[Rfam]
RNA sequence: CUGACUGCGUAUGCGGCUCUCCAUUUCUAAGUUGCAUACAGCUUUAAUAAGGAGGAAGUGUUCAUCCCCAGGCUCGGGGUGCGGCAGUGUGGAGACCUGUCGUAAUGCGGCGCGUCCCUCUGCGGGCGGUCGUGAGGACAUCUUUGGCGGAGGCCGGAUGUCCGGAGUCGGAAGCAUGGCA
Numbered sequence: 001c002u003g004a005c006u007g008c009g010u011a012u013g014c015g016g017c018u019c020u021c022c023a024u025u026u027c028u029a030a031g032u033u034g035c036a037u038a039c040a041g042c043u044u045u046a047a048u049a050a051g052g053a054g055g056a057a058g059u060g061u062u063c064a065u066c067c068c069c070a071g072g073c074u075c076g077g078g079g080u081g082c083g084g085c086a087g088u089g090u091g092g093a094g095a096c097c098u099g100u101c102g103u104a105a106u107g108c109g110g111c112g113c114g115u116c117c118c119u120c121u122g123c124g125g126g127c128g129g130u131c132g133u134g135a136g137g138a139c140a141u142c143u144u145u146g147g148c149g150g151a152g153g154c155c156g157g158a159u160g161u162c163c164g165g166a167g168u169c170g171g172a173a174g175c176a177u178g179g180c181a
Base pairs, nucleotide, nucleotide: 009039010038011037012036013035014034015033016032017031018030066079067078068077069076071169072168073167074166075165080104081103082102083101084100085099086098087097089096090095107133108132109131110130111129113128114127115126136163137162138161139160140159141158142157143156146155147154148153